[Rfam]
RNA sequence: UCGGUCUGUCGUAACUGGCGUGCAGGCGGAAGGCGAUUCCGCCUCGGAUGGUCACCAUCGGGGAGCGACUGACACGGAUUCGGCCGAACGCCUGGGUUGAUACG
Numbered sequence: 001u002c003g004g005u006c007u008g009u010c011g012u013a014a015c016u017g018g019c020g021u022g023c024a025g026g027c028g029g030a031a032g033g034c035g036a037u038u039c040c041g042c043c044u045c046g047g048a049u050g051g052u053c054a055c056c057a058u059c060g061g062g063g064a065g066c067g068a069c070u071g072a073c074a075c076g077g078a079u080u081c082g083g084c085c086g087a088a089c090g091c092c093u094g095g096g097u098u099g100a101u102a103c104g
Stems, first nucleotide, its partner, number of pairs: 004073003008069005015062002017092005048058004081099005
Dot-bracket structure: ...(((.(((((..(([[[[[..........................((((...))))..))..))))).))).......(((((..]]]]]..))))).....
The family of this 104-nucleotide sequence from Mycetocola manganoxydans is "ZMP/ZTP riboswitch aptamer (pfl RNA motif)". Gene Ontology terms of the family: regulation of purine nucleotide biosynthetic process and one-carbon metabolic process.